The family of this 69-nucleotide RNA from Amycolatopsis saalfeldensis is "ASpks TB sRNA". The base pairs follow the family's consensus structure, which is taken from published work.

RNA sequence: CUUGAUCCCGCCCAACCACAACGGAAUCUCCCGAUCCUGACCGUACGUGGCCAGAAUCGCCUGCGCCUC
Numbered sequence: 001c002u003u004g005a006u007c008c009c010g011c012c013c014a015a016c017c018a019c020a021a022c023g024g025a026a027u028c029u030c031c032c033g034a035u036c037c038u039g040a041c042c043g044u045a046c047g048u049g050g051c052c053a054g055a056a057u058c059g060c061c062u063g064c065g066c067c068u069c
Stems, first nucleotide, its partner, number of pairs: 016024002028065001030063001032059002037054003041050003
Dot-bracket structure: ...............((.....))...(.(.((...(((.(((....))).)))...))...).)....
Lineage of the source: Bacteria > Bacillati > Actinomycetes > Pseudonocardiales > Amycolatopsis. The literature on the family includes a 2009 paper in Mol Microbiol by Arnvig and Young, "Identification of small RNAs in Mycobacterium tuberculosis".